[Rfam]
Glycine riboswitch aptamer: an 87-nucleotide RNA sequence from Rhodobacteraceae bacterium SB2. Gene Ontology term of the family: glycine biosynthetic process. The pairing is the family consensus, mapped onto this sequence. The match comes from Rfam's covariance-model search (63 bits).

RNA sequence: UUUAUCAGAACGGGAGAACUGGAUAAACCAGUGCCGAAGGAGCAACCGCCCCCGGAAACUCUCAGGCAGCAGGACCGCUCUGAACAA
Numbered sequence: 001u002u003u004a005u006c007a008g009a010a011c012g013g014g015a016g017a018a019c020u021g022g023a024u025a026a027a028c029c030a031g032u033g034c035c036g037a038a039g040g041a042g043c044a045a046c047c048g049c050c051c052c053c054g055g056a057a058a059c060u061c062u063c064a065g066g067c068a069g070c071a072g073g074a075c076c077g078c079u080c081u082g083a084a085c086a087a
Base pairs, nucleotide, nucleotide: 006082007081008080009079011077012076013075019031020030021029022028033067034066035065036063037062040061041060042059046054